RNA sequence: AAGACCUUUAAAAUUAGUCCAGUGAGGCUGAAAAGGUCGCGAUGGAGAAUAGCAUACGUAUAUCUUAUAAAGGAUACGUAUACCUCCUUGCGAGCUUUUCGCAAGGAGGUUUUUUUG
Numbered sequence: 001a002a003g004a005c006c007u008u009u010a011a012a013a014u015u016a017g018u019c020c021a022g023u024g025a026g027g028c029u030g031a032a033a034a035g036g037u038c039g040c041g042a043u044g045g046a047g048a049a050u051a052g053c054a055u056a057c058g059u060a061u062a063u064c065u066u067a068u069a070a071a072g073g074a075u076a077c078g079u080a081u082a083c084c085u086c087c088u089u090g091c092g093a094g095c096u097u098u099u100c101g102c103a104a105g106g107a108g109g110u111u112u113u114u115u116u117g
Stems, first nucleotide, its partner, number of pairs: 003038007014031006056079006063072001065070001080112001082110012

Description:
The family of this 117-nucleotide RNA from Pontibacillus litoralis is "PyrR binding site". A search with the family's covariance model found it, with a score of 72 bits. A reference for the family is Bonner et al. (2001), "Molecular recognition of pyr mRNA by the Bacillus subtilis attenuation regulatory protein PyrR", Nucleic Acids Res. The source organism's lineage runs through Bacteria, Bacillati, Caryophanales, Bacillaceae and Pontibacillus litoralis.